[Rfam]
RNA: Small nucleolar RNA Z279/snoR105/snoR108
RNA sequence: GGGAUAUGAGAAGUGGUUCAAGCUCUCUAAUAUUACUGAGAGUUGGUGUUCGCCUCAAAGCCUGGUUACGACAAUUGAGCAUCCUCCAAAUUCUAUUUUGAUCCC
Numbered sequence: 001g002g003g004a005u006a007u008g009a010g011a012a013g014u015g016g017u018u019c020a021a022g023c024u025c026u027c028u029a030a031u032a033u034u035a036c037u038g039a040g041a042g043u044u045g046g047u048g049u050u051c052g053c054c055u056c057a058a059a060g061c062c063u064g065g066u067u068a069c070g071a072c073a074a075u076u077g078a079g080c081a082u083c084c085u086c087c088a089a090a091u092u093c094u095a096u097u098u099u100g101a102u103c104c105c
Stems, first nucleotide, its partner, number of pairs: 001105004014095003023042005045084002047081004063077004